[Rfam]
RNA: narK RNA
RNA sequence: GGCCCAUCUCUUGCUGAACAAACAUCACCGGUAGCCAACGGCGGUUGCCCCACUUAAAUCCCGACAAAGACGUCGC
Numbered sequence: 001g002g003c004c005c006a007u008c009u010c011u012u013g014c015u016g017a018a019c020a021a022a023c024a025u026c027a028c029c030g031g032u033a034g035c036c037a038a039c040g041g042c043g044g045u046u047g048c049c050c051c052a053c054u055u056a057a058a059u060c061c062c063g064a065c066a067a068a069g070a071c072g073u074c075g076c
Stems, first nucleotide, its partner, number of pairs: 030049007